[Rfam]
RNA sequence: UAACCGGUGAGAGUCCGGUCGAGGUAGGGACCAGACCGCCUCGUAGCUAGCAGGCACCUGGUGGGGAGAGCCUAAGGGUGAAGCCCUGUGAAAAGCCCAAUAGGGUGAAGCAACAUUGCAGGCCGCAACAUGA
Numbered sequence: 001u002a003a004c005c006g007g008u009g010a011g012a013g014u015c016c017g018g019u020c021g022a023g024g025u026a027g028g029g030a031c032c033a034g035a036c037c038g039c040c041u042c043g044u045a046g047c048u049a050g051c052a053g054g055c056a057c058c059u060g061g062u063g064g065g066g067a068g069a070g071c072c073u074a075a076g077g078g079u080g081a082a083g084c085c086c087u088g089u090g091a092a093a094a095g096c097c098c099a100a101u102a103g104g105g106u107g108a109a110g111c112a113a114c115a116u117u118g119c120a121g122g123c124c125g126c127a128a129c130a131u132g133a
Base pairs, nucleotide, nucleotide: 020043021042022041023040024039050089051088052087053086054085055080056079057078058077059076064071096107097105098104110126111125
RNA: Group II catalytic intron D1-D4-4